[Rfam]
RNA sequence: GUGCAUCCGACAGAAGUCCUGCUUCUCUUUAAAGAGCACGGAUUUAUCCACACCAUGCAACAUGAAUGAAAUGAGAAGUUUCCAGGGCUGCCAGCUUUUCCGUUGAGGUUUUGAGGCAGUAUGUCUCUUCUACAAUA
Numbered sequence: 001g002u003g004c005a006u007c008c009g010a011c012a013g014a015a016g017u018c019c020u021g022c023u024u025c026u027c028u029u030u031a032a033a034g035a036g037c038a039c040g041g042a043u044u045u046a047u048c049c050a051c052a053c054c055a056u057g058c059a060a061c062a063u064g065a066a067u068g069a070a071a072u073g074a075g076a077a078g079u080u081u082c083c084a085g086g087g088c089u090g091c092c093a094g095c096u097u098u099u100c101c102g103u104u105g106a107g108g109u110u111u112u113g114a115g116g117c118a119g120u121a122u123g124u125c126u127c128u129u130c131u132a133c134a135a136u137a
Stems, first nucleotide, its partner, number of pairs: 003058004018040001020038005075130004087117002091113001093110006

This 137-nucleotide RNA from Octodon degus belongs to the Rfam family "Small nucleolar RNA U109". It is annotated as an H/ACA-box small nucleolar RNA. The match comes from Rfam's covariance-model search (61 bits). Pairs were carried over by alignment from the consensus structure, which was predicted with WAR. Gene Ontology terms of the family: nucleolus and RNA processing.